[Rfam]
RNA sequence: GAAGCAUUGGUUAUGAGAGAAUCCAAAAUGUUGCACUUUGAUUACUACUGAAGAAACUUAGGGGAAUAUAUAUCUAUGAGAUGCUC
Number, nucleotide and partner (000 for none) at each position: 001g000002a000003a085004g084005c083006a082007u081008u080009g000010g000011u000012u000013a000014u000015g000016a000017g000018a000019g000020a000021a000022u000023c000024c000025a000026a000027a000028a000029u000030g000031u000032u000033g000034c000035a000036c000037u000038u000039u000040g000041a000042u000043u000044a000045c000046u000047a000048c000049u000050g000051a000052a000053g000054a000055a000056a000057c000058u000059u000060a000061g000062g000063g000064g000065a000066a000067u000068a000069u000070a000071u000072a000073u000074c000075u000076a000077u000078g000079a000080g008081a007082u006083g005084c004085u003086c000
RNA: Small nucleolar RNA snoR26